About this RNA
mir-515 microRNA precursor family: an 89-nucleotide RNA from Cebus imitator. Gene Ontology terms of the family: RISC complex and miRNA-mediated post-transcriptional gene silencing. The family has 181 seed sequences and 1,056 matches in Rfam 15.1. On this family, see Bentwich et al., Nat Genet 2005: "Identification of hundreds of conserved and nonconserved human microRNAs". Lineage of the source: Eukaryota > Gnathostomata > Simiiformes > Platyrrhini > Cebus.
RNA sequence: UCUCAGGCGGUGGCCUUCUGGAGGAAGAGGCACUUUCUGUUGUCUGAAAGAAAAGAAAGUGCCUUCCUUUAGAAGGUUACUCCUUGAGA
Numbered sequence: 001u002c003u004c005a006g007g008c009g010g011u012g013g014c015c016u017u018c019u020g021g022a023g024g025a026a027g028a029g030g031c032a033c034u035u036u037c038u039g040u041u042g043u044c045u046g047a048a049a050g051a052a053a054a055g056a057a058a059g060u061g062c063c064u065u066c067c068u069u070u071a072g073a074a075g076g077u078u079a080c081u082c083c084u085u086g087a088g089a
Stems, first nucleotide, its partner, number of pairs: 001089005007083001009081006016074003020070005027065011040054002